[Rfam]
RNA sequence: AAAAAAUUGAUGAAAAAAUUUCGUAUAACUCCAAUGAUAUGGUUUGGGGGUCUCUACCAGGAACCGAUAAUUCCUGAUUACGAAGAAGGUACAUGUACGU
Numbered sequence: 001a002a003a004a005a006a007u008u009g010a011u012g013a014a015a016a017a018a019u020u021u022c023g024u025a026u027a028a029c030u031c032c033a034a035u036g037a038u039a040u041g042g043u044u045u046g047g048g049g050g051u052c053u054c055u056a057c058c059a060g061g062a063a064c065c066g067a068u069a070a071u072u073c074c075u076g077a078u079u080a081c082g083a084a085g086a087a088g089g090u091a092c093a094u095g096u097a098c099g100u
Stems, first nucleotide, its partner, number of pairs: 019085007029049006058076006
The record is a 100-nucleotide sequence from Peribacillus loiseleuriae, which matches "Purine riboswitch aptamer" in Rfam. From the family's description: Riboswitches are metabolite binding domains within certain messenger RNAs that serve as precision sensors for their corresponding targets. NCBI's taxonomy places the organism under Bacteria, Bacillati, Caryophanales, Bacillaceae, Peribacillus. Clan: Purine riboswitches.